[Rfam]
mir-27 microRNA precursor family: a 78-nucleotide RNA from Phrynocephalus forsythii. It scores 79 bits against the family's covariance model. A reference for the family is Chen et al. (2005), "The developmental miRNA profiles of zebrafish as determined by small RNA cloning", Genes Dev. The organism belongs to Phrynocephalus, within Eukaryota. Rfam 15.1 lists 1,440 matches to the family in 645 species. The base pairs follow the family's consensus structure, which was predicted with RNAalifold.
RNA sequence: GCAAGGGGCAGGGCUUAGCUCACCUGUGAACAGCGUUUGGUUCAGCCAUGUUCACAGUGGCUAAGUUCCGCCCCUUGG
Numbered sequence: 001g002c003a004a005g006g007g008g009c010a011g012g013g014c015u016u017a018g019c020u021c022a023c024c025u026g027u028g029a030a031c032a033g034c035g036u037u038u039g040g041u042u043c044a045g046c047c048a049u050g051u052u053c054a055c056a057g058u059g060g061c062u063a064a065g066u067u068c069c070g071c072c073c074c075u076u077g078g
Stems, first nucleotide, its partner, number of pairs: 011068010026055007